[Rfam]
Nucleotides: 057
Base pairs, nucleotide, nucleotide: 006052007051008050009049010048011047017042018041019040020039024036025035026034
Number, partner (000 for none) and nucleotide at each position: 001000u002000a003000a004000g005000a006052g007051a008050a009049u010048g011047u012000c013000a014000c015000u016000g017042u018041c019040a020039u021000u022000a023000c024036c025035c026034a027000c028000c029000a030000u031000g032000a033000g034026u035025g036024g037000a038000u039020a040019u041018g042017g043000g044000a045000a046000u047011a048010c049009a050008u051007u052006u053000g054000u055000a056000g057000a